[Rfam]
RNA: Purine riboswitch aptamer
RNA sequence: AUACAAAGUGAAUAUGACCCUCAUAUAUAAUGGGAAUACGGCCCAUACGUCUCUACCCGGUUACCGUAAAUAAUCGGACUAUGAGGGAAAGCGGAAGUUGG
Number, nucleotide and partner (000 for none) at each position: 001a000002u000003a000004c000005a000006a000007a000008g000009u000010g000011a000012a000013u000014a000015u000016g000017a000018c087019c086020c085021u084022c083023a082024u081025a080026u000027a000028u000029a000030a046031u045032g044033g043034g042035a000036a000037u000038a000039c000040g000041g000042c034043c033044c032045a031046u030047a000048c000049g000050u000051c000052u000053c000054u000055a000056c000057c077058c076059g075060g074061u073062u072063a071064c000065c000066g000067u000068a000069a000070a000071u063072a062073a061074u060075c059076g058077g057078a000079c000080u025081a024082u023083g022084a021085g020086g019087g018088a000089a000090a000091g000092c000093g000094g000095a000096a000097g000098u000099u000100g000101g000